[Rfam]
About this RNA
The record is an 84-nucleotide RNA from Aquarana catesbeiana, which matches "mir-15 microRNA precursor family" in Rfam. Its Rfam clan is "mir-15 clan". This family represents the related mir-15a and mir-15b sequences. In humans miR-15a and miR-16 are clustered within 0.5 kb at 13q14. This region has been shown to be deleted in more than half of B cell chronic lymphocytic leukaemias (CLL). Both miR-15a and miR-16 are deleted or down-regulated in more than two thirds of CLL cases. The source organism's lineage runs through Eukaryota, Bilateria, Sarcopterygii, Batrachia and Aquarana.
RNA sequence: CCCUUAAAAGCUGUAGCAGCACAUCAUGAUUUGCAUGGUUUAUUAAAGAUACUAAUCAUUUUUUGCUGCUUCAGUAUUUUGUGG
Numbered sequence: 001c002c003c004u005u006a007a008a009a010g011c012u013g014u015a016g017c018a019g020c021a022c023a024u025c026a027u028g029a030u031u032u033g034c035a036u037g038g039u040u041u042a043u044u045a046a047a048g049a050u051a052c053u054a055a056u057c058a059u060u061u062u063u064u065g066c067u068g069c070u071u072c073a074g075u076a077u078u079u080u081g082u083g084g
Stems, first nucleotide, its partner, number of pairs: 001084002004081001006079001013072001015070007023062001026059006033052001035050002